Description: The family of this 98-nucleotide sequence from Mionectes macconnelli is "Z30 small nucleolar RNA". A reference for the family is Galardi et al. (2002), "Purified box C/D snoRNPs are able to reproduce site-specific 2'-O-methylation of target RNA in vitro", Mol Cell Biol. By type it is a C/D-box small nucleolar RNA. It scores 94 bits against the family's covariance model.
RNA sequence: AGGCAAUGAUGAGCGAAGUACAGUCUGAACUGGUAUUGCCGAGACUCCGUGUCUCUGCUCUGACCAGGGCAUGAUCACCUAAUCUUCUCUCUGAGCUC
Numbered sequence: 001a002g003g004c005a006a007u008g009a010u011g012a013g014c015g016a017a018g019u020a021c022a023g024u025c026u027g028a029a030c031u032g033g034u035a036u037u038g039c040c041g042a043g044a045c046u047c048c049g050u051g052u053c054u055c056u057g058c059u060c061u062g063a064c065c066a067g068g069g070c071a072u073g074a075u076c077a078c079c080u081a082a083u084c085u086u087c088u089c090u091c092u093g094a095g096c097u098c
Stems, first nucleotide, its partner, number of pairs: 001097001003096002038058002041055001